Notes: A member of the RNA family "msiK RNA" from Tessaracoccus lapidicaptus, 57 nucleotides long. Rfam classes the family as a cis-regulatory element. Pairs were carried over by alignment from the consensus structure, which is taken from published work. It scores 59 bits against the family's covariance model. NCBI's taxonomy places the organism under Bacteria, Bacillati, Actinomycetota, Actinomycetes, Tessaracoccus.
[Rfam]
RNA sequence: UACAGGUUCCUAUCCACUACGGAUCGUCGGGCACGUACCUGCCCGUGGAAAGGAAAU
Numbered sequence: 001u002a003c004a005g006g007u008u009c010c011u012a013u014c015c016a017c018u019a020c021g022g023a024u025c026g027u028c029g030g031g032c033a034c035g036u037a038c039c040u041g042c043c044c045g046u047g048g049a050a051a052g053g054a055a056a057u
Base pairs, nucleotide, nucleotide: 010052011051013049014048015047016046028045029044030043031042032041033040